[Rfam]
RNA sequence: CUUUGUAUUCUUCCACAGCUUUCUUGAACUGCAACUUCGUCUUACUUUCCUUGUUAUUUUGUGUUGCUUAUAUAGGCGGUAUAUGGGUAUGUAUGUAUGUCGUUGCGGUUCAAUAAAGCUGUGGGAAGAUACGGACA
Numbered sequence: 001c002u003u004u005g006u007a008u009u010c011u012u013c014c015a016c017a018g019c020u021u022u023c024u025u026g027a028a029c030u031g032c033a034a035c036u037u038c039g040u041c042u043u044a045c046u047u048u049c050c051u052u053g054u055u056a057u058u059u060u061g062u063g064u065u066g067c068u069u070a071u072a073u074a075g076g077c078g079g080u081a082u083a084u085g086g087g088u089a090u091g092u093a094u095g096u097a098u099g100u101c102g103u104u105g106c107g108g109u110u111c112a113a114u115a116a117a118g119c120u121g122u123g124g125g126a127a128g129a130u131a132c133g134g135a136c137a
Stems, first nucleotide, its partner, number of pairs: 003134005013124003017120006024113004029108007
A member of the RNA family "MIR396 microRNA precursor family" from Gossypium raimondii, 137 nucleotides long. For this family Rfam cites "Computational identification of plant microRNAs and their targets, including a stress-induced miRNA" (Jones-Rhoades and Bartel, Mol Cell, 2004). Rfam 15.1 lists 744 matches to the family in 207 species. Rfam links the family to the GO terms miRNA-mediated post-transcriptional gene silencing and RISC complex.